Shown here is a 69-nucleotide RNA sequence from Diceros bicornis, a member of the family "Small nucleolar RNA SNORD63". The literature on the family includes a 2002 paper in Mol Cell Biol by Galardi et al., "Purified box C/D snoRNPs are able to reproduce site-specific 2'-O-methylation of target RNA in vitro". About the family: snoRNA U63 is found in both humans and mice. The base pairs follow the family's consensus structure, which was predicted with PFOLD.
RNA sequence: GUGCACUGAUGUAUUGCCAACACAUCAUUCUGAAGAAGAGUGUGUGAUGACUUUCUGUGACUAAGCACA
Numbered sequence: 001g002u003g004c005a006c007u008g009a010u011g012u013a014u015u016g017c018c019a020a021c022a023c024a025u026c027a028u029u030c031u032g033a034a035g036a037a038g039a040g041u042g043u044g045u046g047a048u049g050a051c052u053u054u055c056u057g058u059g060a061c062u063a064a065g066c067a068c069a
Stems, first nucleotide, its partner, number of pairs: 001068004